[Rfam]
RNA sequence: AGACACAACUCUGGAGAGUCCCUUGAAUGGGCGCCGAAGGUGCAAAGAUGUGAAUAUUUACAUCCUUAUCUCUCAGGCCAGUGGACGGAGUAAAAUAA
Dot-bracket structure: .......((((((......(((......))).(((((..(.(...((.................))...).))).))).......)))))).......
Numbered sequence: 001a002g003a004c005a006c007a008a009c010u011c012u013g014g015a016g017a018g019u020c021c022c023u024u025g026a027a028u029g030g031g032c033g034c035c036g037a038a039g040g041u042g043c044a045a046a047g048a049u050g051u052g053a054a055u056a057u058u059u060a061c062a063u064c065c066u067u068a069u070c071u072c073u074c075a076g077g078c079c080a081g082u083g084g085a086c087g088g089a090g091u092a093a094a095a096u097a098a
Stems, first nucleotide, its partner, number of pairs: 008091006020031003033078003036074002040072001042070001046066002

About this RNA: Rfam assigns this 98-nucleotide RNA sequence from Phascolarctobacterium succinatutens to the family "Glycine riboswitch aptamer". About the family: This family represents the bacterial glycine riboswitch. The family has 44 seed sequences and 9,425 matches in Rfam 15.1. The pairing is the family consensus, mapped onto this sequence.